[Rfam]
RNA sequence: GGACCCCUGAAGUCAGGCGUGGGUACAGCCUUGUGCUGUACGAUGGGGCGACCCACUCUUGAUUUCAGUGGUUG
Numbered sequence: 001g002g003a004c005c006c007c008u009g010a011a012g013u014c015a016g017g018c019g020u021g022g023g024u025a026c027a028g029c030c031u032u033g034u035g036c037u038g039u040a041c042g043a044u045g046g047g048g049c050g051a052c053c054c055a056c057u058c059u060u061g062a063u064u065u066c067a068g069u070g071g072u073u074g
Base pairs, nucleotide, nucleotide: 002073003072004071005070007068009066010065011064012063013062014061016059017058021054022053023052024051028049029048030047031046